[Rfam]
RNA sequence: ACCAAAAUAAAACGCGCUGUGCCAAAAUCAGCAGGUCGGAGCUUUUACCAGUUCAGUCCUGCUGGUCAUGCUGGUACGGUAUGUCUCGAAAGAAGGGAGAGUGAAAGUCGCAGCAUCGGAAACGAGACCAGGAGGGACCUCUUUCUUAAUGUCCCAUGUCCUGCUUCUCAAGAUUCUGCGCUACACUU
Numbered sequence: 001a002c003c004a005a006a007a008u009a010a011a012a013c014g015c016g017c018u019g020u021g022c023c024a025a026a027a028u029c030a031g032c033a034g035g036u037c038g039g040a041g042c043u044u045u046u047a048c049c050a051g052u053u054c055a056g057u058c059c060u061g062c063u064g065g066u067c068a069u070g071c072u073g074g075u076a077c078g079g080u081a082u083g084u085c086u087c088g089a090a091a092g093a094a095g096g097g098a099g100a101g102u103g104a105a106a107g108u109c110g111c112a113g114c115a116u117c118g119g120a121a122a123c124g125a126g127a128c129c130a131g132g133a134g135g136g137a138c139c140u141c142u143u144u145c146u147u148a149a150u151g152u153c154c155c156a157u158g159u160c161c162u163g164c165u166u167c168u169c170a171a172g173a174u175u176c177u178g179c180g181c182u183a184c185a186c187u188u
Stems, first nucleotide, its partner, number of pairs: 017079002020076005027069002030066001031062002034059002037056001039054005106182002109180005115174001130159001132157001134155004
RNA: Small nucleolar RNA SNORA81